[Rfam]
RNA sequence: CCAAAGGCUCUUUUAAGAGCCACCCACUUAGUCUUAAAAAAAGAG
Numbered sequence: 001c002c003a004a005a006g007g008c009u010c011u012u013u014u015a016a017g018a019g020c021c022a023c024c025c026a027c028u029u030a031g032u033c034u035u036a037a038a039a040a041a042a043g044a045g
Base pairs, nucleotide, nucleotide: 006021007020008019009018010017011016
Shown here is a 45-nucleotide sequence from Urocolius indicus, a member of the family "Histone 3' UTR stem-loop". For this family Rfam cites "Molecular mechanisms for the regulation of histone mRNA stem-loop-binding protein by phosphorylation" (Zhang et al., Proc Natl Acad Sci U S A, 2014). The match comes from Rfam's covariance-model search (43 bits). NCBI's taxonomy places the organism under Eukaryota, Dipnotetrapodomorpha, Tetrapoda, Aves, Urocolius.